The record is a 565-nucleotide part of an RNA from Chironomus tentans, which matches "Eukaryotic large subunit ribosomal RNA" in Rfam.
RNA sequence: CCUUCCGAAGUUUCCCUCAGGAUAGCUGGAGCAUAAAAGAGUUGUAUUGCUAACUCAUACCUGGUAAAGCGAAUGAUUAGAGGCCUUAGGAACGAAAUGUUCUUAACCUAUUCUCAAACUUUAAAUGGGUAUGUAAGUCAACAUACUUGAUUGAUGUUGACCAUUAGUUAUGUCUCGUACAUAGCACGUAAGAUUGUAUGCGCCCAGUGGGCCAAGUUUUGGUAAGCAGAACUGGUGCUGCGGGAUGAACCGAACGCAUUGUUAAGGCGCCCAAAUAAACGACGCAUCAUCGAUACCAUGAAAGGUGUUGAUUGCUGAAGACAGCAGGACGGUGGACAUGGAAGUUGUCAUCCGCUAAGGAGUGUGUAACAACUCACCUGCCGAAGCAAUUAGCCCUUAAAAUGGAUGGCGCUCAAGUCGUUUGCCGAUACAAUGCCGUUAAGAUAAAAUCAAUGUAUAUUCAUUUAAGGAUAUUACAUUUUGAAAUCUUAACGAGUAGGAAGGUAUUAUGGUAUGCGUUGAAGUAUUUAACGUGAGUUAAUAUGGAGCUGCCAUAAGCACAGAU
Numbered sequence: 001c002c003u004u005c006c007g008a009a010g011u012u013u014c015c016c017u018c019a020g021g022a023u024a025g026c027u028g029g030a031g032c033a034u035a036a037a038a039g040a041g042u043u044g045u046a047u048u049g050c051u052a053a054c055u056c057a058u059a060c061c062u063g064g065u066a067a068a069g070c071g072a073a074u075g076a077u078u079a080g081a082g083g084c085c086u087u088a089g090g091a092a093c094g095a096a097a098u099g100u101u102c103u104u105a106a107c108c109u110a111u112u113c114u115c116a117a118a119c120u121u122u123a124a125a126u127g128g129g130u131a132u133g134u135a136a137g138u139c140a141a142c143a144u145a146c147u148u149g150a151u152u153g154a155u156g157u158u159g160a161c162c163a164u165u166a167g168u169u170a171u172g173u174c175u176c177g178u179a180c181a182u183a184g185c186a187c188g189u190a191a192g193a194u195u196g197u198a199u200g201c202g203c204c205c206a207g208u209g210g211g212c213c214a215a216g217u218u219u220u221g222g223u224a225a226g227c228a229g230a231a232c233u234g235g236u237g238c239u240g241c242g243g244g245a246u247g248a249a250c251c252g253a254a255c256g257c258a259u260u261g262u263u264a265a266g267g268c269g270c271c272c273a274a275a276u277a278a279a280c281g282a283c284g285c286a287u288c289a290u291c292g293a294u295a296c297c298a299u300g301a302a303a304g305g306u307g308u309u310g311a312u313u314g315c316u317g318a319a320g321a322c323a324g325c326a327g328g329a330c331g332g333u334g335g336a337c338a339u340g341g342a343a344g345u346u347g348u349c350a351u352c353c354g355c356u357a358a359g360g361a362g363u364g365u366g367u368a369a370c371a372a373c374u375c376a377c378c379u380g381c382c383g384a385a386g387c388a389a390u391u392a393g394c395c396c397u398u399a400a401a402a403u404g405g406a407u408g409g410c411g412c413u414c415a416a417g418u419c420g421u422u423u424g425c426c427g428a429u430a431c432a433a434u435g436c437c438g439u440u441a442a443g444a445u446a447a448a449a450u451c452a453a454u455g456u457a458u459a460u461u462c463a464u465u466u467a468a469g470g471a472u473a474u475u476a477c478a479u480u481u482u483g484a485a486a487u488c489u490u491a492a493c494g495a496g497u498a499g500g501a502a503g504g505u506a507u508u509a510u511g512g513u514a515u516g517c518g519u520u521g522a523a524g525u526a527u528u529u530a531a532c533g534u535g536a537g538u539u540a541a542u543a544u545g546g547a548g549c550u551g552c553c554a555u556a557a558g559c560a561c562a563g564a565u
Base pairs, nucleotide, nucleotide: 001504002503003502004501005500006499011024013022014021015020028204029203031201032200033199056133057132058131059130060129061128062127067122068120069119074116075115076114079111081109082108083107086106087105088104089103090102091101093099139184141182144179145178146177211236212235213234215233216232217231218230219229220228221227241252242251243250256436257435258434259433260432262430266426267425268424275423277422281419282418283417303397304396305395307394308393309392310391311390312389313388314387315386316385324381325380326379327378328377330354331353332352335349336348337347355359360375364373365372437494438493439492440491441490442489443488444487445486505560507557508556509555510554511553512552513551514550516549517548524544525543530539531538532537
Rfam 15.1 lists 107,465 matches to the family in 2,616 species. NCBI's taxonomy places the organism under Eukaryota, Bilateria, Chironominae, Chironomus, Camptochironomus.